[Rfam]
RNA sequence: UGUCAUCGCUGAAUUAGAGAUCGGCGAAUGAUGUAUUUAAACACUCAACCAAUUUUAGGAGUAAAUAUGUCUCUAAGUACUGAAAAAAAAGCAGCAAUCAUUGCUGAAUAUGGUCGUGACGGU
Numbered sequence: 001u002g003u004c005a006u007c008g009c010u011g012a013a014u015u016a017g018a019g020a021u022c023g024g025c026g027a028a029u030g031a032u033g034u035a036u037u038u039a040a041a042c043a044c045u046c047a048a049c050c051a052a053u054u055u056u057a058g059g060a061g062u063a064a065a066u067a068u069g070u071c072u073c074u075a076a077g078u079a080c081u082g083a084a085a086a087a088a089a090a091g092c093a094g095c096a097a098u099c100a101u102u103g104c105u106g107a108a109u110a111u112g113g114u115c116g117u118g119a120c121g122g123u
Stems, first nucleotide, its partner, number of pairs: 007026006055077002058074004
Dot-bracket structure: ......((((((........))))))............................((.((((.........)))).))..............................................
RNA: Ribosomal S15 leader
Organism: Conservatibacter flavescens